[Rfam]
RNA: Ribosomal protein L20 leader
RNA sequence: AACGACAAGUAGGAGCACCCGCUUCUCACCUGACUAACGCAAAAUUUGUAGUUGGCUGGUUUAGUUAUCUUUCAAAAAUUAUCGAGAGACAUGUGGGUGCAUUCGUGUGCCCACAUUUUUAUUUUGGC
Numbered sequence: 001a002a003c004g005a006c007a008a009g010u011a012g013g014a015g016c017a018c019c020c021g022c023u024u025c026u027c028a029c030c031u032g033a034c035u036a037a038c039g040c041a042a043a044a045u046u047u048g049u050a051g052u053u054g055g056c057u058g059g060u061u062u063a064g065u066u067a068u069c070u071u072u073c074a075a076a077a078a079u080u081a082u083c084g085a086g087a088g089a090c091a092u093g094u095g096g097g098u099g100c101a102u103u104c105g106u107g108u109g110c111c112c113a114c115a116u117u118u119u120u121a122u123u124u125u126g127g128c
Stems, first nucleotide, its partner, number of pairs: 011026006028060003036053003039049002092115010